[Rfam]
RNA: Small nucleolar RNA R64/Z200 family
Organism: Glycine soja
RNA sequence: GCUUUGCAGUAAUAAUUUCAUAAAUAAAUUCAUAUGUCAGACUUCAGAUAUUUUCAAAUAGUUGAGAAUAAAAAUUCUAUUACUUAGCAGAAU
Numbered sequence: 001g002c003u004u005u006g007c008a009g010u011a012a013u014a015a016u017u018u019c020a021u022a023a024a025u026a027a028a029u030u031c032a033u034a035u036g037u038c039a040g041a042c043u044u045c046a047g048a049u050a051u052u053u054u055c056a057a058a059u060a061g062u063u064g065a066g067a068a069u070a071a072a073a074a075u076u077c078u079a080u081u082a083c084u085u086a087g088c089a090g091a092a093u
Base pairs, nucleotide, nucleotide: 001093003091004090005089006088007087049060050059051058052057